[Rfam]
RNA sequence: CGCGUGGUGUCCGGCGUAAGCAGACCGGAUAGCGACGCGGCCUUACGAUGAGGU
Numbered sequence: 001c002g003c004g005u006g007g008u009g010u011c012c013g014g015c016g017u018a019a020g021c022a023g024a025c026c027g028g029a030u031a032g033c034g035a036c037g038c039g040g041c042c043u044u045a046c047g048a049u050g051a052g053g054u
Stems, first nucleotide, its partner, number of pairs: 001039005007033002011028004015023001
Dot-bracket structure: (((((.((..(((((.......).))))...)).)))))...............
This 54-nucleotide RNA sequence belongs to the Rfam family "L31-Gammaproteobacteria ribosomal protein leader". The family's RNA type in Rfam is cis-regulatory leader. On this family, see Eckert and Weinberg, BMC Microbiol 2020: "Discovery of 20 novel ribosomal leader candidates in bacteria and archaea".